Overview: The record is a 68-nucleotide RNA sequence from Cucumis melo, which matches "MIR164 microRNA precursor family" in Rfam. For this family Rfam cites "High throughput approaches reveal splicing of primary microRNA transcripts and tissue specific expression of mature microRNAs in Vitis vinifera" (Mica et al., BMC Genomics, 2009). The source organism's lineage runs through Eukaryota, Streptophyta, Pentapetalae, Benincaseae and Cucumis. The match comes from Rfam's covariance-model search (72 bits). Pairs were carried over by alignment from the consensus structure, which was predicted with RNAalifold.

RNA sequence: UGGAGAAGGGGAGCACGUGCAAAGGGUUUAGAAAAUGGGUGAGUUUGCACGUGCCCUGCUUCUCCAAC
Numbered sequence: 001u002g003g004a005g006a007a008g009g010g011g012a013g014c015a016c017g018u019g020c021a022a023a024g025g026g027u028u029u030a031g032a033a034a035a036u037g038g039g040u041g042a043g044u045u046u047g048c049a050c051g052u053g054c055c056c057u058g059c060u061u062c063u064c065c066a067a068c
Stems, first nucleotide, its partner, number of pairs: 001066008010057002013054011028035002